[Rfam]
Proteobacterial sRNA Xoo8: a 339-nucleotide sequence from Xanthomonas albilineans. It is annotated as a small RNA.

RNA sequence: GCCAGGCCGACUGAGGUUCGCUCUCGGCCGGCGUACGCGCCGGCCCGCAAUACCGCCGUCCAGGACUGUCCACCUGGCUGGCGUGCCGUGUUCCCUUGCUGCCGGGUCGUCGCGACCCGGCAGGUUUUUGCGACUGUGUCAGCCGCAUCGAUCAAGUGUUGCGGUACUGAAAUGCUGUGACCGCUUUAUUAAAACCGCGCCAACCGCGUGAUAUUCUUGUGAUCUGUUCAGUUCCGGUGUGAACAGAUGUUCUCAGACUCUCUGCCAUGACCCAGCAACGCACCCUCAAGAACACGAUUCGCGCCACCGGCGUGGGCCUGCACAGUGGCAACAAGGUGU
Numbered sequence: 001g002c003c004a005g006g007c008c009g010a011c012u013g014a015g016g017u018u019c020g021c022u023c024u025c026g027g028c029c030g031g032c033g034u035a036c037g038c039g040c041c042g043g044c045c046c047g048c049a050a051u052a053c054c055g056c057c058g059u060c061c062a063g064g065a066c067u068g069u070c071c072a073c074c075u076g077g078c079u080g081g082c083g084u085g086c087c088g089u090g091u092u093c094c095c096u097u098g099c100u101g102c103c104g105g106g107u108c109g110u111c112g113c114g115a116c117c118c119g120g121c122a123g124g125u126u127u128u129u130g131c132g133a134c135u136g137u138g139u140c141a142g143c144c145g146c147a148u149c150g151a152u153c154a155a156g157u158g159u160u161g162c163g164g165u166a167c168u169g170a171a172a173u174g175c176u177g178u179g180a181c182c183g184c185u186u187u188a189u190u191a192a193a194a195c196c197g198c199g200c201c202a203a204c205c206g207c208g209u210g211a212u213a214u215u216c217u218u219g220u221g222a223u224c225u226g227u228u229c230a231g232u233u234c235c236g237g238u239g240u241g242a243a244c245a246g247a248u249g250u251u252c253u254c255a256g257a258c259u260c261u262c263u264g265c266c267a268u269g270a271c272c273c274a275g276c277a278a279c280g281c282a283c284c285c286u287c288a289a290g291a292a293c294a295c296g297a298u299u300c301g302c303g304c305c306a307c308c309g310g311c312g313u314g315g316g317c318c319u320g321c322a323c324a325g326u327g328g329c330a331a332c333a334a335g336g337u338g339u
Stems, first nucleotide, its partner, number of pairs: 001329003004319005010313002016053002025047001026045008056080001058078003062075003081281002090131002099123011136181001182199003251270002254264003303311003320326002
Overview: Pairs were carried over by alignment from the consensus structure, which was predicted with CMfinder. The match comes from Rfam's covariance-model search (113 bits). The literature on the family includes a 2011 paper in BMC Genomics by Liang et al., "Identification and functional characterization of small non-coding RNAs in Xanthomonas oryzae pathovar oryzae".